[Rfam]
RNA sequence: UGAAGUCUUCAGGGCGGGGUUAGUUUCCCCACCGGCGGUAUACAUAGUAAUCUAUGUGAGCCCGCGAGCCGUAAGGCAUGAUUUGGUGAGAAUCCAAAGCCGACAGUAAAGUCUGGAUGAAAGAAGAAUGCA
Dot-bracket structure: ...(.(((((......(((.......))).[[((((((.....................[[))))....(.....).....(((((.......)))))]])).(((....]]))).......))))).)...
The family of this 132-nucleotide sequence from Clostridium sp. L2-50 is "FMN riboswitch aptamer (RFN element)". The match comes from Rfam's covariance-model search (103 bits). Lineage of the source: Bacteria > Bacillati > Bacillota > Clostridia > Clostridium. Its family is annotated with FMN binding in the Gene Ontology.